[Rfam]
RNA: U11 spliceosomal RNA
Organism: Anopheles gambiae
RNA sequence: UAAAAGGGUGCUUGCUUUUCUACGCUUUUGUAUGGCACAUCUGUGCGGCGCCGAGCUCGGUUGAGUCCGGCCAGGUGUCCGUACCGGUGGGGUAUGGCUAUCAAGACAUAUCCAGCACGUAAUUUUUGACCCCGGAAGGCAGUUGACUCGCUCCUCUGCGUCGACGCCUUC
Dot-bracket structure: .......(((((((((.................))))((((.((((((..............................)))))).))))(((((((..........))))))))))))..................((((.(((((..(((......))))))))))))..